[Rfam]
RNA: SAM riboswitch aptamer (S box leader)
Organism: Fibrella rubiginis
RNA sequence: GAUUUAUACAGAUGAGGGGAGAGACCAGGCUCUUUGAACCUCAGGCAACCUACCACCCGGCAAGGUGCUAAUUCCUGCCCACAGCAUGGUGCUCGUGGGAGAUAUAAACG
Numbered sequence: 001g002a003u004u005u006a007u008a009c010a011g012a013u014g015a016g017g018g019g020a021g022a023g024a025c026c027a028g029g030c031u032c033u034u035u036g037a038a039c040c041u042c043a044g045g046c047a048a049c050c051u052a053c054c055a056c057c058c059g060g061c062a063a064g065g066u067g068c069u070a071a072u073u074c075c076u077g078c079c080c081a082c083a084g085c086a087u088g089g090u091g092c093u094c095g096u097g098g099g100a101g102a103u104a105u106a107a108a109c110g
Stems, first nucleotide, its partner, number of pairs: 003108006013043005021032003026077004044069004049065002051062001053060002073102001078099005